[Rfam]
RNA sequence: AGUCAUAUGCUUGUCUCAAAGAUUAAGCCAUGCAUGUCUAAGUACAAGCUCGUCUCGAGCGAAACUGCGGAUGGCUCAUUAAAUCAGUUAUGGUUCAUUGGAUCGAGUCCCCCCGACAUGGAUAACUGUGGUAAUUCUAGAGCUAAUACAUGCGUCCAAGCGCCGACUUUCCAGAAGGCGUGCUUUUAUUAGGAACAAGACCAGCCCGGUCUCGGCCGGCCACACUGGUGAACUCUGGAUAACACAGCCGAUCGCACGGUCUUUGCACCGGCGACGGAUCCUUCGAAUGUCUGCCCUAUCAACUUUCGAUGGUACGUUAUGCGCCUACCAUGGUCGUCACGGGUAACGGAGAAUCAGGGUUCGAUUCCGGAGAGGGAGCCUGAGAAACGGCUACCACAUCCAAGGAAGGCAGCAGGCGCGCAAAUUACCCACUCCCGACACGGGGAGGUAGUGACGAAAAAUAACAAUACAGGACUCUUUCGAGGCCCUGUAAUUGGAAUGAGUACACUUUAAAUCCUUUAACGAGGAUCCACUGGAGGGCAAGUCUGGUGCCAGCAGCCGCGGUAAUUCCAGCUCCAGUAGCGUAUAUUAAAGCUGUUG
Number, nucleotide and partner (000 for none) at each position: 001a590002g589003u588004c000005a587006u586007a585008u584009g583010c582011u581012u000013g000014u459015c000016u457017c456018a000019a000020a452021g419022a000023u000024u000025a000026a000027g417028c416029c415030a000031u414032g413033c412034a000035u000036g068037u067038c000039u000040a000041a066042g065043u064044a000045c000046a000047a000048g060049c059050u000051c000052g000053u000054c000055u000056c000057g000058a000059g049060c048061g000062a000063a000064a043065c042066u041067g037068c036069g000070g000071a000072u000073g000074g000075c372076u371077c370078a000079u000080u000081a000082a000083a000084u000085c293086a292087g291088u000089u000090a288091u287092g000093g000094u286095u285096c000097a000098u000099u000100g281101g280102a279103u278104c000105g000106a000107g000108u000109c000110c000111c000112c000113c000114c000115g000116a000117c152118a151119u150120g149121g000122a000123u000124a000125a000126c142127u141128g000129u139130g138131g137132u000133a000134a000135u000136u000137c131138u130139a129140g000141a127142g126143c000144u000145a000146a000147u000148a000149c120150a119151u118152g117153c000154g000155u000156c000157c000158a000159a000160g181161c180162g179163c178164c177165g000166a000167c174168u173169u000170u000171c000172c000173a168174g167175a000176a000177g164178g163179c162180g161181u160182g000183c000184u000185u000186u242187u241188a240189u239190u238191a000192g000193g000194a000195a000196c000197a000198a000199g000200a229201c228202c227203a226204g000205c000206c000207c000208g217209g216210u215211c000212u000213c000214g000215g210216c209217c208218g000219g000220c000221c000222a000223c000224a000225c000226u203227g202228g201229u200230g000231a000232a000233c000234u000235c000236u000237g000238g190239a189240u188241a187242a186243c000244a000245c000246a000247g000248c000249c000250g000251a000252u274253c273254g272255c271256a000257c270258g269259g268260u267261c000262u000263u000264u000265g000266c000267a260268c259269c258270g257271g255272c254273g253274a252275c000276g000277g000278a103279u102280c101281c100282u000283u000284c000285g095286a094287a091288u090289g000290u000291c087292u086293g085294c000295c343296c342297u341298a000299u000300c000301a000302a334303c333304u332305u000306u000307c000308g000309a331310u330311g329312g328313u327314a326315c000316g324317u000318u000319a000320u000321g000322c000323g000324c316325c000326u314327a313328c312329c311330a310331u309332g304333g303334u302335c000336g000337u000338c000339a000340c000341g297342g296343g295344u000345a000346a000347c369348g368349g367350a366351g362352a361353a360354u359355c000356a000357g000358g000359g354360u353361u352362c351363g000364a000365u000366u350367c349368c348369g347370g077371a076372g075373a000374g395375g394376g000377a392378g391379c390380c000381u000382g000383a000384g000385a000386a000387a000388c000389g000390g379391c378392u377393a000394c375395c374396a000397c408398a000399u406400c405401c000402a000403a000404g000405g400406a399407a000408g397409g000410c000411a000412g033413c032414a031415g029416g028417c027418g000419c021420g000421c000422a000423a000424a000425u450426u000427a449428c448429c447430c000431a000432c000433u445434c444435c443436c442437g441438a000439c000440a000441c437442g436443g435444g434445g433446a000447g429448g428449u427450a425451g000452u020453g000454a000455c000456g017457a016458a000459a014460a000461a000462u000463a000464a000465c496466a495467a494468u492469a491470c490471a489472g488473g487474a000475c484476u483477c482478u000479u000480u000481c000482g477483a476484g475485g000486c000487c473488c472489u471490g470491u469492a468493a000494u467495u466496g465497g000498a000499a000500u000501g000502a000503g523504u522505a520506c000507a519508c000509u000510u000511u000512a000513a000514a000515u000516c000517c000518u000519u507520u505521a000522a504523c503524g000525a000526g000527g000528a000529u000530c000531c000532a000533c579534u578535g577536g576537a575538g574539g000540g000541c000542a000543a000544g000545u000546c573547u572548g571549g570550u000551g000552c000553c000554a000555g562556c561557a000558g000559c000560c000561g556562c555563g000564g000565u000566a000567a000568u000569u000570c549571c548572a547573g546574c538575u537576c536577c535578a534579g533580u000581a011582g010583c009584g008585u007586a006587u005588a003589u002590u001591a000592a000593a000594g000595c000596u000597g000598u000599u000600g000
RNA: Eukaryotic small subunit ribosomal RNA, nucleotides 22 to 621
Organism: Strongylocentrotus purpuratus